[Rfam]
RNA: Bacterial small signal recognition particle RNA
Organism: Chlorobium ferrooxidans
Nucleotides: 099
Stems, first nucleotide, its partner, number of pairs: 004093005010085005015077001017076006024068006035060004043052003
Number, partner (000 for none) and nucleotide at each position: 001000g002000a003000g004093u005092a006091a007090g008089u009000c010085c011084u012083a013082u014081a015077c016000a017076a018075c019074a020073u021072u022071c023000a024068g025067u026066u027065a028064c029063c030000c031000a032000a033000c034000c035060a036059u037058g038057u039000c040000a041000g042000a043052u044051c045050c046000g047000g048000a049000a050045g051044g052043a053000a054000g055000c056000a057038g058037c059036a060035u061000c062000c063029g064028g065027u066026a067025a068024u069000a070000u071022g072021a073020a074019u075018g076017u077015g078000u079000g080000a081014u082013a083012u084011a085010g086000u087000a088000a089008g090007c091006u092005u093004a094000c095000u096000c097000u098000c099000u